The record is an 85-nucleotide RNA sequence from Leptotrombidium deliense, which matches "mir-133 microRNA precursor family" in Rfam. Taxonomically the source falls in Leptotrombidium (Eukaryota, Arthropoda, Acariformes, Trombiculidae). It scores 59 bits against the family's covariance model.
RNA sequence: GAGCUUUAGUUGGUUGAAUUCGGGCCAAAUUAAUCUUGAGAGAUACAAUGCAAUGCAUUUGGUCCCCUUCAACCAGCUGUAGUAU
Numbered sequence: 001g002a003g004c005u006u007u008a009g010u011u012g013g014u015u016g017a018a019u020u021c022g023g024g025c026c027a028a029a030u031u032a033a034u035c036u037u038g039a040g041a042g043a044u045a046c047a048a049u050g051c052a053a054u055g056c057a058u059u060u061g062g063u064c065c066c067c068u069u070c071a072a073c074c075a076g077c078u079g080u081a082g083u084a085u
Stems, first nucleotide, its partner, number of pairs: 003083003008078011022064002025062006
mir-133 was first experimentally characterised in mouse and homologues have since been discovered in several other species. The mature sequence is excised from the 3' arm of the hairpin.